[Rfam]
RNA: tRNA
Organism: Gulosibacter sp. 10
RNA sequence: GGGUCUAUAGCUCAGGCGGUUAGAGCGCUUCGCUGAUAACGAAGAGGUCCCAGGUUCAAGUCCUGGUAGACCCA
Numbered sequence: 001g002g003g004u005c006u007a008u009a010g011c012u013c014a015g016g017c018g019g020u021u022a023g024a025g026c027g028c029u030u031c032g033c034u035g036a037u038a039a040c041g042a043a044g045a046g047g048u049c050c051c052a053g054g055u056u057c058a059a060g061u062c063c064u065g066g067u068a069g070a071c072c073c074a
Base pairs, nucleotide, nucleotide: 001073002072003071004070005069006068007067010026011025012024013023028044029043030042031041032040050066051065052064053063054062